RNA: Archaeal large subunit ribosomal RNA, nucleotides 567 to 663
RNA sequence: GACAAGGCAUUAAAGGAUCUUCCACUUGAAGGAAGCAACCGCGAGGUUGUUGUACGAGAGUGGUUGCCAAUGUUUUGUCGUACGUUUUGAAGAACGG
Numbered sequence: 001g002a003c004a005a006g007g008c009a010u011u012a013a014a015g016g017a018u019c020u021u022c023c024a025c026u027u028g029a030a031g032g033a034a035g036c037a038a039c040c041g042c043g044a045g046g047u048u049g050u051u052g053u054a055c056g057a058g059a060g061u062g063g064u065u066g067c068c069a070a071u072g073u074u075u076u077g078u079c080g081u082a083c084g085u086u087u088u089g090a091a092g093a094a095c096g097g
Base pairs, nucleotide, nucleotide: 001079002078003077004076005075006074007073008072009071010070015068016067022063023062024061025060026059027058031055036049037048038047039046040045083096084095085094